A member of the RNA family "L2-Alphaproteobacteria ribosomal protein leader", 62 nucleotides long. A reference for the family is Eckert and Weinberg (2020), "Discovery of 20 novel ribosomal leader candidates in bacteria and archaea", BMC Microbiol. The family's consensus secondary structure is taken from published work.
[Rfam]
RNA sequence: GGCCACCUUCGGGGGGCUAACCAUAGGCAGGGUAACCUGCCGCAGCUAACGGAAGACAGAAA
Number, nucleotide and partner (000 for none) at each position: 001g018002g017003c016004c015005a000006c014007c013008u012009u000010c000011g000012g008013g007014g006015g004016g003017c002018u001019a000020a000021c000022c000023a000024u000025a000026g041027g040028c039029a038030g037031g036032g000033u000034a000035a000036c031037c030038u029039g028040c027041c026042g000043c000044a000045g000046c000047u000048a000049a000050c000051g000052g000053a000054a000055g000056a000057c000058a000059g000060a000061a000062a000